[Rfam]
RNA sequence: AAAGAUCCAAUGAAGGGAAGCAAGUAAGCAUAUGGGAUGUUUACAGAGAGCUGCUGGUGGUGGAAAUGCAGUAACUUACCAUAGGCUGAAUGGGUCCUAGAGGAUUUGGGUGAAAUUUUAGUAGCCUAAAACGCAUGCUCGCCGUUAAAUGAGCAGGAUAUGUUAGUAUCCUACAGAGGAGAAGCUUUUGCUUCUUGAAAUAGGUGGUACCGCGUAAUACUACGCCCUAUGC
Number, nucleotide and partner (000 for none) at each position: 001a000002a000003a000004g000005a000006u000007c103008c102009a000010a000011u000012g000013a000014a000015g098016g097017g096018a095019a000020g000021c000022a000023a000024g000025u000026a000027a087028g086029c085030a000031u083032a082033u000034g000035g000036g000037a000038u000039g075040u074041u073042u000043a000044c000045a000046g000047a000048g000049a000050g072051c071052u070053g069054c068055u000056g000057g000058u000059g000060g000061u000062g000063g000064a000065a000066a000067u000068g054069c053070a052071g051072u050073a041074a040075c039076u000077u000078a000079c000080c000081a000082u032083a031084g000085g029086c028087u027088g000089a000090a000091u000092g000093g000094g000095u018096c017097c016098u015099a000100g000101a000102g008103g007104a000105u130106u129107u128108g127109g126110g125111u124112g000113a000114a000115a000116u000117u000118u000119u000120a000121g000122u000123a000124g111125c110126c109127u108128a107129a106130a105131a000132c144133g143134c000135a000136u000137g000138c000139u000140c000141g000142c000143c133144g132145u000146u000147a000148a000149a000150u000151g000152a000153g000154c000155a000156g000157g000158a000159u000160a000161u000162g000163u000164u000165a000166g000167u000168a000169u000170c000171c000172u000173a000174c000175a000176g000177a000178g000179g196180a195181g194182a193183a192184g191185c190186u000187u000188u000189u000190g185191c184192u183193u182194c181195u180196u179197g000198a000199a000200a000201u229202a228203g227204g226205u000206g000207g000208u000209a000210c000211c000212g225213c224214g223215u222216a221217a000218u000219a000220c000221u216222a215223c214224g213225c212226c204227c203228u202229a201230u000231g000232c000